Notes:
The record is an 83-nucleotide RNA sequence from Artemisia annua, which matches "Small nucleolar RNA SNORD34" in Rfam. By type it is a C/D-box small nucleolar RNA. The base pairs follow the family's consensus structure, which was predicted with PFOLD. The organism belongs to Artemisia, within Eukaryota.

[Rfam]
RNA sequence: UAACGCCUGUGAUGAAUAAAUAUUUUGCCUACAUUGUCUGAUCUUUUACAAUGAAGAGAAAACUAGAGAUUUCUGAGGCUUUG
Numbered sequence: 001u002a003a004c005g006c007c008u009g010u011g012a013u014g015a016a017u018a019a020a021u022a023u024u025u026u027g028c029c030u031a032c033a034u035u036g037u038c039u040g041a042u043c044u045u046u047u048a049c050a051a052u053g054a055a056g057a058g059a060a061a062a063c064u065a066g067a068g069a070u071u072u073c074u075g076a077g078g079c080u081u082u083g
Base pairs, nucleotide, nucleotide: 001083002082005079006078007077
snoRNA U34 is found in intron 5 of the ribosomal protein L13a gene in humans.